[Rfam]
RNA sequence: GUGUGCCGUGUUUUCCGAGUUGUCAGCCUUCCUCGCAAGCCAGGGAGAUGGCUGCCAGCCGAUAGGGCAUAGCGGGAAACGGUUAUGCCUCCCACCUUUGGAAAGGAAAACAACUUGUUGUCCC
Numbered sequence: 001g002u003g004u005g006c007c008g009u010g011u012u013u014u015c016c017g018a019g020u021u022g023u024c025a026g027c028c029u030u031c032c033u034c035g036c037a038a039g040c041c042a043g044g045g046a047g048a049u050g051g052c053u054g055c056c057a058g059c060c061g062a063u064a065g066g067g068c069a070u071a072g073c074g075g076g077a078a079a080c081g082g083u084u085a086u087g088c089c090u091c092c093c094a095c096c097u098u099u100g101g102a103a104a105g106g107a108a109a110a111c112a113a114c115u116u117g118u119u120g121u122c123c124c
Stems, first nucleotide, its partner, number of pairs: 003118002011110006019059004024054005032047003065090009075080001091101002
Shown here is a 124-nucleotide sequence from Acetomicrobium mobile, a member of the family "Molybdenum/Tungsten riboswitch aptamer (Moco RNA motif)". NCBI's taxonomy places the organism under Bacteria, Thermotogati, Synergistia, Acetomicrobiaceae, Acetomicrobium mobile. Pairs were carried over by alignment from the consensus structure, which is taken from published work.